[Rfam]
Rfam assigns this 118-nucleotide sequence from Corynebacterium urogenitale to the family "SAM (S-adenosyl methionine) riboswitch aptamer". Rfam's curators write: SAM-IV is a mRNA element that regulates gene expression via direct sensing of S-adenosylmethionine (SAM or AdoMet). SAM-IV riboswitches share conserved nucleotide positions with the previously described SAM-I riboswitches sequence analysis and molecular recognition experiments suggest that SAM-I and SAM-IV riboswitches share similar ligand binding sites, but have different scaffolds.

RNA sequence: GAUCAAGAAGCGUGGCUCUAAGCCCUCCACUAGGCCAGCUAGCAACCGCGAUCAUUCGCACGGUGCUCUUGGAGGAAGAUCCGCCCCGGUGGCAGAUGUUCCCGGGGAAGAUCGAAUG
Dot-bracket structure: ((((....(...((((....((.......))..))))..)(((..(((((......))..))).)))..........))))..((((((.(((....))).))))))...........
Gene Ontology terms of the family: S-adenosylmethionine metabolic process and regulation of gene expression.